[Rfam]
Shown here is a 121-nucleotide RNA sequence from Panthera leo, a member of the family "Small nucleolar RNA SNORA31". Rfam describes the family as follows. ACA31 (SNORA31) belongs to the H/ACA class of snoRNAs which are thought to guide the sites of modification of uridines to pseudouridines. ACA31 is predicted to guide the pseudouridylation of U3713 in 28S rRNA and U218 in 18S rRNA. This family includes the mouse homologue snoMBI-161. It scores 76 bits against the family's covariance model. The literature on the family includes a 2001 paper in EMBO J by Huttenhofer et al., "RNomics: an experimental approach that identifies 201 candidates for novel, small, non-messenger RNAs in mouse".

RNA sequence: CUGCAUUUACUGAUAGACCUUAAAUAAUUUGUUGUUCUUUUGGUUUGCAUUAGGAUACAAAAGAAAAAAACUCUGUGUACCUUCUGUCUUUGUGGCCCAGAUUGAAUAAGGGAAUUUAUUU
Numbered sequence: 001c002u003g004c005a006u007u008u009a010c011u012g013a014u015a016g017a018c019c020u021u022a023a024a025u026a027a028u029u030u031g032u033u034g035u036u037c038u039u040u041u042g043g044u045u046u047g048c049a050u051u052a053g054g055a056u057a058c059a060a061a062a063g064a065a066a067a068a069a070a071c072u073c074u075g076u077g078u079a080c081c082u083u084c085u086g087u088c089u090u091u092g093u094g095g096c097c098c099a100g101a102u103u104g105a106a107u108a109a110g111g112g113a114a115u116u117u118a119u120u121u
Base pairs, nucleotide, nucleotide: 002059003058005056006055007054008053011049012048014047015046016045017044018043019042023036024035025034026033027032072113073112074111076109080104083101084100085099086098088095089094